[Rfam]
Small nucleolar RNA Z118/Z121/Z120: a 103-nucleotide RNA from Dichanthelium oligosanthes. The base pairs follow the family's consensus structure, which was predicted with PFOLD. A reference for the family is Chen et al. (2003), "The high diversity of snoRNAs in plants: identification and comparative study of 120 snoRNA genes from Oryza sativa", Nucleic Acids Res.
RNA sequence: UAUUUGCCAUGAUGACUACUGUUAGGACGGUAUCUGAACGGGGUGAUUUUUAAGUGCAUCCCUUCUGUUUAUACCAAAAUUGAAUAUGGUUUCUGAGCAAAUC
Numbered sequence: 001u002a003u004u005u006g007c008c009a010u011g012a013u014g015a016c017u018a019c020u021g022u023u024a025g026g027a028c029g030g031u032a033u034c035u036g037a038a039c040g041g042g043g044u045g046a047u048u049u050u051u052a053a054g055u056g057c058a059u060c061c062c063u064u065c066u067g068u069u070u071a072u073a074c075c076a077a078a079a080u081u082g083a084a085u086a087u088g089g090u091u092u093c094u095g096a097g098c099a100a101a102u103c
Stems, first nucleotide, its partner, number of pairs: 002102006038064001040062004
By type it is a C/D-box small nucleolar RNA.